Small nucleolar RNA snoR53Y: a 71-nucleotide sequence from Salix dunnii. It is annotated as a C/D-box small nucleolar RNA. Gene Ontology terms of the family: RNA processing and nucleolus. For this family Rfam cites "Multiple snoRNA gene clusters from Arabidopsis" (Brown et al., RNA, 2001). The source organism's lineage runs through Eukaryota, Viridiplantae, Magnoliopsida, Malpighiales and Salix. A search with the family's covariance model found it, with a score of 45 bits.

RNA sequence: GUUCCCAGUGAUGCUGCUUAAAUUUGAUCAUUGGAUGACUGAAACUUUCAGUCAAUCUUGCUGAGGGAACA
Number, nucleotide and partner (000 for none) at each position: 001g070002u069003u068004c067005c066006c000007a000008g000009u000010g000011a000012u000013g000014c000015u000016g000017c000018u000019u000020a000021a000022a000023u000024u000025u000026g000027a000028u000029c000030a000031u000032u000033g000034g000035a000036u000037g000038a000039c000040u000041g000042a000043a000044a000045c000046u000047u000048u000049c000050a000051g000052u000053c000054a000055a000056u000057c000058u000059u000060g000061c000062u000063g000064a000065g000066g005067g004068a003069a002070c001071a000